[Rfam]
Background: Rfam assigns this 167-nucleotide RNA from Roseburia zhanii to the family "Clostridiales-1 RNA". Lineage of the source: Bacteria > Bacillati > Bacillota > Lachnospiraceae > Roseburia. The family has 194 seed sequences and 1,172 matches in Rfam 15.1.
RNA sequence: UCUUACAGUAACUAUAAGUCAGAAAUCCUUCCUGCUCGCAGGAUUAAAUUUCUGACUUAUUGACCCGCCACACAUGAGGAAGUAGCGAUUUUCCUUGGAAAAUCUGCGGAUUCCGAAUGUGUGUAGAAUUGCGGGAGUUGCGCAGCAACGGAGCAAUUCGUGUAUCA
Numbered sequence: 001u002c003u004u005a006c007a008g009u010a011a012c013u014a015u016a017a018g019u020c021a022g023a024a025a026u027c028c029u030u031c032c033u034g035c036u037c038g039c040a041g042g043a044u045u046a047a048a049u050u051u052c053u054g055a056c057u058u059a060u061u062g063a064c065c066c067g068c069c070a071c072a073c074a075u076g077a078g079g080a081a082g083u084a085g086c087g088a089u090u091u092u093c094c095u096u097g098g099a100a101a102a103u104c105u106g107c108g109g110a111u112u113c114c115g116a117a118u119g120u121g122u123g124u125a126g127a128a129u130u131g132c133g134g135g136a137g138u139u140g141c142g143c144a145g146c147a148a149c150g151g152a153g154c155a156a157u158u159c160g161u162g163u164a165u166c167a
Stems, first nucleotide, its partner, number of pairs: 001167001004164003009063001014060013030043005069123007078114004085107002087104007126159007137149004